Small nucleolar RNA snoR77: a 134-nucleotide sequence from Aquilegia coerulea. A reference for the family is Marker et al. (2002), "Experimental RNomics: identification of 140 candidates for small non-messenger RNAs in the plant Arabidopsis thaliana", Curr Biol. Its family is annotated with RNA processing and nucleolus in the Gene Ontology. It scores 98 bits against the family's covariance model.
RNA sequence: AGGCAGCCUCCUUGCCACGAUAAAAUGGCAUGAGUGGCGUUAUUCUGCUCAUAGAUCACAUUUUCUGCUCUUCAGAUUUGCUGAGGUUGGAUAACUCCACUCUUUGAAGCUGGUCUAGUAAGCUCAAGUACAUU
Numbered sequence: 001a002g003g004c005a006g007c008c009u010c011c012u013u014g015c016c017a018c019g020a021u022a023a024a025a026u027g028g029c030a031u032g033a034g035u036g037g038c039g040u041u042a043u044u045c046u047g048c049u050c051a052u053a054g055a056u057c058a059c060a061u062u063u064u065c066u067g068c069u070c071u072u073c074a075g076a077u078u079u080g081c082u083g084a085g086g087u088u089g090g091a092u093a094a095c096u097c098c099a100c101u102c103u104u105u106g107a108a109g110c111u112g113g114u115c116u117a118g119u120a121a122g123c124u125c126a127a128g129u130a131c132a133u134u
Stems, first nucleotide, its partner, number of pairs: 002041003007037002009034001011032001013030005062128003067123003074116005080110003085102002
Dot-bracket structure: .(((..(((.(.(((((........))))).).).)).)))....................(((..(((....(((((.(((..((..............)).....))).)))))....)))..)))......